[Rfam]
RNA sequence: AGUUCUUGCUUCAACAGAGUUUGAACGGGACUUU
Numbered sequence: 001a002g003u004u005c006u007u008g009c010u011u012c013a014a015c016a017g018a019g020u021u022u023g024a025a026c027g028g029g030a031c032u033u034u
Base pairs, nucleotide, nucleotide: 001032002031003030004029005028006027008026010025011024012023013022014021015019